[Rfam]
mir-288 microRNA precursor family: a 97-nucleotide sequence from Drosophila melanogaster. The source organism's lineage runs through Eukaryota, Cyclorrhapha, Drosophilinae, Drosophilini and Sophophora.

RNA sequence: CGGCCAUGUCGUAAUUAGCGGAGCACGGCAUCGCCGGCGAUAAUUAAUGACGGUGGUCACGUUGGUUUCAUGUCGAUUUCAUUUCAUGACACGGCCG
Dot-bracket structure: .((((.((((((....((.((((....((((.(((((((........((((....)))))))))))...))))...)))).))..)))))).)))).